The record is a 153-nucleotide RNA sequence from Halotalea alkalilenta, which matches "FMN riboswitch aptamer (RFN element)" in Rfam. The organism belongs to Halotalea, within Bacteria. About the family: The RFN element is a highly conserved domain that is found frequently in the 5'-untranslated regions of prokaryotic mRNAs that encode for flavin mononucleotide (FMN) biosynthesis and transport proteins.
RNA sequence: CGAAGUUCUCAGGGCGGGGUGAAACUCCCCACCGGCGGUGAUGACGAUCCUUCGUCCAAGCCCGCGAGCGCCCGUCAGAUGAUAUUGAUGGGGUCAGCAGAUUCGGUGAGAUUCCGAAGCCGACGGUGAUAGUCCGGAUGAAAGAGAACCGAU
Numbered sequence: 001c002g003a004a005g006u007u008c009u010c011a012g013g014g015c016g017g018g019g020u021g022a023a024a025c026u027c028c029c030c031a032c033c034g035g036c037g038g039u040g041a042u043g044a045c046g047a048u049c050c051u052u053c054g055u056c057c058a059a060g061c062c063c064g065c066g067a068g069c070g071c072c073c074g075u076c077a078g079a080u081g082a083u084a085u086u087g088a089u090g091g092g093g094u095c096a097g098c099a100g101a102u103u104c105g106g107u108g109a110g111a112u113u114c115c116g117a118a119g120c121c122g123a124c125g126g127u128g129a130u131a132g133u134c135c136g137g138a139u140g141a142a143a144g145a146g147a148a149c150c151g152a153u
Stems, first nucleotide, its partner, number of pairs: 005149006017029003031133002033122002035065004060120002068098002102118005124136003